A member of the RNA family "Small nucleolar RNA snoR99" from Malus domestica, 108 nucleotides long. The family's consensus secondary structure was predicted with WAR. The source organism's lineage runs through Eukaryota, Streptophyta, Magnoliopsida, Amygdaloideae and Malus. For this family Rfam cites "Experimental RNomics: identification of 140 candidates for small non-messenger RNAs in the plant Arabidopsis thaliana" (Marker et al., Curr Biol, 2002).
RNA sequence: GUGCUAUUGGGAUGAACAAGUCCCUCAAAUUAAUCUACGUCCAUCCUAUUCACUUUGUCAGCUUUUUUUCUUCUUGUGUCUUGCUGAUCAUUUUUGGAUGGAAUAGGU
Number, nucleotide and partner (000 for none) at each position: 001g000002u000003g000004c000005u000006a000007u000008u000009g000010g000011g000012a000013u000014g000015a000016a000017c000018a000019a000020g000021u000022c000023c000024c000025u000026c000027a000028a000029a000030u000031u000032a000033a000034u000035c000036u000037a000038c000039g000040u102041c101042c100043a099044u098045c097046c000047u000048a000049u000050u000051c000052a000053c000054u000055u000056u000057g088058u087059c086060a085061g084062c083063u000064u000065u000066u000067u000068u000069u000070c000071u000072u000073c000074u000075u000076g000077u000078g000079u000080c000081u000082u000083g062084c061085u060086g059087a058088u057089c000090a000091u000092u000093u000094u000095u000096g000097g045098a044099u043100g042101g041102a040103a000104u000105a000106g000107g000108u000
Overview: Gene Ontology terms of the family: RNA processing and nucleolus. The family has 9 seed sequences and 733 matches in Rfam 15.1.